The record is a 120-nucleotide RNA from Octodon degus, which matches "Small nucleolar RNA SNORA32" in Rfam. Rfam describes the family as follows. ACA32 is a member of the H/ACA class of snoRNA that guide the sites of modification of uridines to pseudouridines. NCBI's taxonomy places the organism under Eukaryota, Dipnotetrapodomorpha, Glires, Octodontidae, Octodon.
Nucleotides: 120
Base pairs, nucleotide, nucleotide: 004051005050006049007048010045011044012043026040027039028038029037066113067112068111069110073106074105075104076103084099085098086097
Number, partner (000 for none) and nucleotide at each position: 001000u002000a003000g004051u005050c006049a007048u008000u009000a010045c011044c012043a013000a014000g015000g016000c017000u018000u019000u020000u021000a022000g023000a024000a025000u026040g027039a028038a029037g030000u031000u032000u033000c034000u035000c036000a037029u038028u039027u040026c041000u042000g043012u044011g045010g046000a047000c048007a049006u050005g051004a052000a053000c054000a055000u056000a057000a058000a059000a060000a061000a062000g063000u064000u065000u066113c067112c068111c069110a070000c071000c072000a073106g074105g075104u076103u077000u078000u079000c080000u081000g082000u083000c084099u085098g086097c087000u088000a089000c090000c091000u092000u093000g094000u095000u096000a097086g098085c099084a100000a101000u102000c103076a104075a105074c106073c107000u108000g109000u110069u111068g112067g113066g114000a115000g116000c117000a118000u119000u120000a